[Rfam]
A member of the RNA family "mir-15 microRNA precursor family" from Astyanax mexicanus, 91 nucleotides long. The match comes from Rfam's covariance-model search (64 bits). Lineage of the source: Eukaryota > Deuterostomia > Ostariophysi > Characoidei > Astyanax. The base pairs follow the family's consensus structure, which was predicted with RNAalifold.
RNA sequence: GCCUUCCCCACUUCAGCAGCACGUAAAUAUUGGUGUGUGAGAAAAUAAAGUCUAACCCCAAUAUUACUUGUGCUGCUUCAGUGAGGCAGGG
Numbered sequence: 001g002c003c004u005u006c007c008c009c010a011c012u013u014c015a016g017c018a019g020c021a022c023g024u025a026a027a028u029a030u031u032g033g034u035g036u037g038u039g040a041g042a043a044a045a046u047a048a049a050g051u052c053u054a055a056c057c058c059c060a061a062u063a064u065u066a067c068u069u070g071u072g073c074u075g076c077u078u079c080a081g082u083g084a085g086g087c088a089g090g091g
Stems, first nucleotide, its partner, number of pairs: 002090003006086001015077009026065008035056002
Its Rfam clan is "mir-15 clan". A reference for the family is Lagos-Quintana et al. (2001), "Identification of novel genes coding for small expressed RNAs", Science.